Rfam assigns this 157-nucleotide sequence from Scheffersomyces stipitis to the family "Small nucleolar RNA snR8". The family's consensus secondary structure was predicted with WAR. The family is grouped with related families in Rfam's "SNORA56 clan". Rfam links the family to the GO terms RNA processing and nucleolus.
[Rfam]
RNA sequence: UUCUUCUUUGAUACGAACGCUUCCUAUUCACUGCACCAUUCGCUUUAAUGAAUGAUUGGAGGGGAAAAGGAAAGCCAGAUAAAGCUCGAAACACGUCCUCAUACUAAGUUUGCUCUAAUCCCGUAGCAUAGUUGGAUUCUGCGUUUUCGAAACACUA
Numbered sequence: 001u002u003c004u005u006c007u008u009u010g011a012u013a014c015g016a017a018c019g020c021u022u023c024c025u026a027u028u029c030a031c032u033g034c035a036c037c038a039u040u041c042g043c044u045u046u047a048a049u050g051a052a053u054g055a056u057u058g059g060a061g062g063g064g065a066a067a068a069g070g071a072a073a074g075c076c077a078g079a080u081a082a083a084g085c086u087c088g089a090a091a092c093a094c095g096u097c098c099u100c101a102u103a104c105u106a107a108g109u110u111u112g113c114u115c116u117a118a119u120c121c122c123g124u125a126g127c128a129u130a131g132u133u134g135g136a137u138u139c140u141g142c143g144u145u146u147u148c149g150a151a152a153c154a155c156u157a
Stems, first nucleotide, its partner, number of pairs: 019075002022071002031061002034058002037054005086150004093144003104135003109130001111128004
Dot-bracket structure: ..................((.((.......((.((.(((((........)))))..)).))........))..))..........((((...(((........(((..(.((((..........)))).)..)))......)))..)))).......